RNA sequence: GCGGGUCUAGCUUAUUACUCCAUGGUUGCCAAUUGGGCGAAGGUCCUG
Number, nucleotide and partner (000 for none) at each position: 001g000002c000003g000004g000005g000006u043007c042008u041009a000010g038011c037012u036013u035014a034015u000016u000017a000018c000019u000020c000021c028022a000023u000024g000025g000026u000027u000028g021029c000030c000031a000032a000033u000034u014035g013036g012037g011038c010039g000040a000041a008042g007043g006044u000045c000046c000047u000048g000
The record is a 48-nucleotide RNA, which matches "Hepatitis C virus stem-loop SL1412 RNA" in Rfam.
The literature on the family includes a 2016 paper in Mol Cell by Pirakitikulr et al., "The Coding Region of the HCV Genome Contains a Network of Regulatory RNA Structures".
Rfam describes the family as follows. HCV_SL1412 is a stem-loop in the coding region of the C (core) gene.
Rfam classes the family as a cis-regulatory element.